[Rfam]
RNA sequence: AUUUUUGGAUAAUCGCACGAAGCGAGUGACUUCGUGAGGAAAGUCCAUGCUAGCACUGGCUGUGAUGCCAGUAGUGUUUGUGCUAGACGAAUGCAUAAGUCUAGGCACGUACAAUGUGCGUGACGGCAGUCGAAAAGGCUAAGUCUUUGGAUAGGCUUGAUUAGACUUGAAAGUGCCACAGUGACGAAGUUUUUGUGGAAACGCAAAAAGUGGAACGCGGUAAACCCCUCAAGCUAGCAACCCAAACUUUGGUAGGGGCAUGGGAUGGCCAGAACCGAAUGGACUAUCCUGACUGCAUCAGCAGUAGACAGAUGAUUAUACAGAGAAGCAAGAACCUAGUUGCUUCUUGGACAAAACAUGGCUUAUAGAA
Numbered sequence: 001a002u003u004u005u006u007g008g009a010u011a012a013u014c015g016c017a018c019g020a021a022g023c024g025a026g027u028g029a030c031u032u033c034g035u036g037a038g039g040a041a042a043g044u045c046c047a048u049g050c051u052a053g054c055a056c057u058g059g060c061u062g063u064g065a066u067g068c069c070a071g072u073a074g075u076g077u078u079u080g081u082g083c084u085a086g087a088c089g090a091a092u093g094c095a096u097a098a099g100u101c102u103a104g105g106c107a108c109g110u111a112c113a114a115u116g117u118g119c120g121u122g123a124c125g126g127c128a129g130u131c132g133a134a135a136a137g138g139c140u141a142a143g144u145c146u147u148u149g150g151a152u153a154g155g156c157u158u159g160a161u162u163a164g165a166c167u168u169g170a171a172a173g174u175g176c177c178a179c180a181g182u183g184a185c186g187a188a189g190u191u192u193u194u195g196u197g198g199a200a201a202c203g204c205a206a207a208a209a210g211u212g213g214a215a216c217g218c219g220g221u222a223a224a225c226c227c228c229u230c231a232a233g234c235u236a237g238c239a240a241c242c243c244a245a246a247c248u249u250u251g252g253u254a255g256g257g258g259c260a261u262g263g264g265a266u267g268g269c270c271a272g273a274a275c276c277g278a279a280u281g282g283a284c285u286a287u288c289c290u291g292a293c294u295g296c297a298u299c300a301g302c303a304g305u306a307g308a309c310a311g312a313u314g315a316u317u318a319u320a321c322a323g324a325g326a327a328g329c330a331a332g333a334a335c336c337u338a339g340u341u342g343c344u345u346c347u348u349g350g351a352c353a354a355a356a357c358a359u360g361g362c363u364u365a366u367a368g369a370a
Stems, first nucleotide, its partner, number of pairs: 004370003007366001008321001009319006016036006041364003045361005050237005055072006078232003082228001083104006105124001106122006125227002128167004136158004143152003173225002175221003190209008241257003261291007292305005323348009
RNA: Bacterial RNase P class B